[Rfam]
RNA sequence: AGCUCGACCGGAUCGACCGCGCGCGUCACCAGCAGAUAGUCGCGGAUGCAGAUGCCGUGGCGGCCCUC
Dot-bracket structure: ...(((.(..(.(.(((.......)))).)....(.((.((((....)).)))).)..).))).....
RNA: ASdes TB sRNA
Organism: Amycolatopsis keratiniphila